[Rfam]
Nucleotides: 265
Stems, first nucleotide, its partner, number of pairs: 001265006009057003012030004017025001019023001034054005063258006072249005079243010092230002096227002100223002104220002106217003115211008123200006129191002132189005139180004148173004156165003
Number, partner (000 for none) and nucleotide at each position: 001265c002264c003263g004262u005261g006260c007000u008000a009057a010056g011055u012030g013029g014028g015027g016000a017025g018000g019023u020000a021000g022000c023019g024000g025017u026000g027015c028014c029013c030012u031000g032000u033000a034054u035053c036052c037051g038050c039000a040000a041000u042000c043000c044000g045000c046000u047000c048000u049000a050038g051037c052036g053035g054034a055011a056010c057009u058000g059000a060000a061000u062000u063258c064257c065256u066255u067254c068253u069000c070000g071000a072249g073248g074247c075246u076245g077000u078000u079243u080242a081241a082240u083239u084238g085237u086236a087235g088234g089000g090000u091000c092230u093229g094000c095000c096227u097226u098000u099000u100223g101222u102000a103000a104220g105219u106217g107216g108215c109000g110000u111000u112000g113000a114000c115211g116210c117209c118208c119207g120206g121205g122204u123200c124199c125198u126197g127196c128195g129191c130190a131000a132189u133188g134187a135186g136185a137000a138000c139180c140179c141178a142177u143000g144000a145000a146000c147000c148173a149172u150171g151170u152000c153000a154000g155000g156165u157164c158163c159000g160000g161000a162000a163158g164157g165156a166000a167000g168000c169000a170151g171150c172149a173148u174000u175000a176000a177142g178141u179140g180139g181000a182000c183000u184000u185136u186135c187134u188133c189132a190130u191129g192000u193000g194000c195128c196127g197126u198125g199124g200123g201000g202000g203000a204122g205121c206120c207119u208118g209117g210116g211115c212000u213000g214000a215108g216107c217106u218000a219105a220104c221000u222101g223100c224000u225000u226097a227096a228000g229093u230092a231000a232000c233000g234088c235087c236086u237085a238084u239083g240082a241081u242080u243079a244000g245076c246075a247074g248073u249072c250000g251000a252000c253068a254067g255066a256065a257064g258063g259000u260006g261005c262004a263003c264002g265001g
Bacterial large signal recognition particle RNA: a 265-nucleotide RNA from Domibacillus mangrovi. NCBI's taxonomy places the organism under Bacteria, Bacillota, Bacilli, Bacillaceae, Domibacillus. Rfam describes the family as follows. The signal recognition particle (SRP) is a universally conserved ribonucleoprotein involved in the co-translational targeting of proteins to membranes. Gene Ontology terms of the family: SRP-dependent cotranslational protein targeting to membrane, signal sequence recognition and signal recognition particle, plasma membrane targeting. A search with the family's covariance model found it, with a score of 242 bits. Rfam classes the family as a non-coding RNA gene. Its Rfam clan is "SRP clan".